[Rfam]
RNA: 6S / SsrS RNA
RNA sequence: GUUUCCCUGCCUGGUUCGCGAUGGUCAUAAAUUCCUUGAACCAAUGCUUACUCAGCACAGGUCGCGGGACAUUGAAAUGCGGGCGUGAGCGUCACUCUGUCUGACGAACCCGAAGCGUUUCUUACUGCGGCCGAUCUUGAACUCCGGUUCAGGAUGCCGGCCAAGCGGCUAAGGCGGGGAUCUU
Numbered sequence: 001g002u003u004u005c006c007c008u009g010c011c012u013g014g015u016u017c018g019c020g021a022u023g024g025u026c027a028u029a030a031a032u033u034c035c036u037u038g039a040a041c042c043a044a045u046g047c048u049u050a051c052u053c054a055g056c057a058c059a060g061g062u063c064g065c066g067g068g069a070c071a072u073u074g075a076a077a078u079g080c081g082g083g084c085g086u087g088a089g090c091g092u093c094a095c096u097c098u099g100u101c102u103g104a105c106g107a108a109c110c111c112g113a114a115g116c117g118u119u120u121c122u123u124a125c126u127g128c129g130g131c132c133g134a135u136c137u138u139g140a141a142c143u144c145c146g147g148u149u150c151a152g153g154a155u156g157c158c159g160g161c162c163a164a165g166c167g168g169c170u171a172a173g174g175c176g177g178g179g180a181u182c183u184u
Base pairs, nucleotide, nucleotide: 004180005179006178007177008176009175010174011173012171013170014169015168017167018166019165033154034153035152037151038150039149040148041147042146060132061131062130064128065127066126067125069123071122074121075120076119077118078117079116080115085110090106091105092104093103094102